[Rfam]
Overview:
A member of the RNA family "6C RNA" from Phytohabitans suffuscus, 70 nucleotides long. Gene Ontology term of the family: sporulation. The organism belongs to Phytohabitans, within Bacteria.

Nucleotides: 070
Stems, first nucleotide, its partner, number of pairs: 002034003006030008036066007043058005
Number, partner (000 for none) and nucleotide at each position: 001000u002034g003033g004032g005000u006030u007029u008028c009027g010026g011025c012024u013023c014000g015000a016000c017000c018000c019000c020000c021000c022000g023013g024012a025011g026010c027009c028008g029007g030006a031000c032004c033003c034002c035000a036066g037065a038064c039063g040062a041061c042060c043058c044057c045056g046055c047054c048000u049000c050000c051000c052000c053000c054047g055046g056045c057044g058043g059000g060042g061041g062040u063039c064038g065037u066036c067000c068000u069000c070000g
Description:
The family's consensus secondary structure is taken from published work. A reference for the family is Weinberg et al. (2007), "Identification of 22 candidate structured RNAs in bacteria using the CMfinder comparative genomics pipeline", Nucleic Acids Res.